The record is a 68-nucleotide sequence, which matches "RAGATH-18 RNA" in Rfam. Rfam's curators write: Actinobacteria, Firmicutes, Fusobacteria, Thermotogae (1 example). The sequence is in the family's curated seed alignment.
[Rfam]
RNA sequence: CCUUUGGAGAGCUAAACAAACUCAAGUAGCUUAAUUUAUUAGUAAAAGAGAGUUCGUAGAAGAAGGAA
Numbered sequence: 001c002c003u004u005u006g007g008a009g010a011g012c013u014a015a016a017c018a019a020a021c022u023c024a025a026g027u028a029g030c031u032u033a034a035u036u037u038a039u040u041a042g043u044a045a046a047a048g049a050g051a052g053u054u055c056g057u058a059g060a061a062g063a064a065g066g067a068a
Base pairs, nucleotide, nucleotide: 001066002065003064004063005062009055010054011053012052013051021050022049023048029043030042031041034039